[Rfam]
RNA sequence: AUGCAUUCUUCUAAACCCCCCAGUUGUUCACUAUAGCUGCUGGGACAAGAAAGAAUGCCAGAGCAAAAUGUACAUGUAUCCAAAGUGAAGAGUCUGUCUGUGUCUCUUUGCUAUUUCACAUCUAGACAUUGC
Numbered sequence: 001a002u003g004c005a006u007u008c009u010u011c012u013a014a015a016c017c018c019c020c021c022a023g024u025u026g027u028u029c030a031c032u033a034u035a036g037c038u039g040c041u042g043g044g045a046c047a048a049g050a051a052a053g054a055a056u057g058c059c060a061g062a063g064c065a066a067a068a069u070g071u072a073c074a075u076g077u078a079u080c081c082a083a084a085g086u087g088a089a090g091a092g093u094c095u096g097u098c099u100g101u102g103u104c105u106c107u108u109u110g111c112u113a114u115u116u117c118a119c120a121u122c123u124a125g126a127c128a129u130u131g132c
Base pairs, nucleotide, nucleotide: 003058004057005056006055009051010050011049012048019044020043021042022041023040026037027036063132064131069126071124072123074121084112085111086110087109088108089107090106092104

Shown here is a 132-nucleotide RNA from Acipenser ruthenus, a member of the family "Small nucleolar RNA SNORA14". The organism belongs to Acipenser, within Eukaryota. Gene Ontology terms of the family: RNA processing and nucleolus. ACA14 is a member of the H/ACA class of snoRNA that guide the sites of modification of uridines to pseudouridines. It scores 51 bits against the family's covariance model. The family has 18 seed sequences and 848 matches in Rfam 15.1.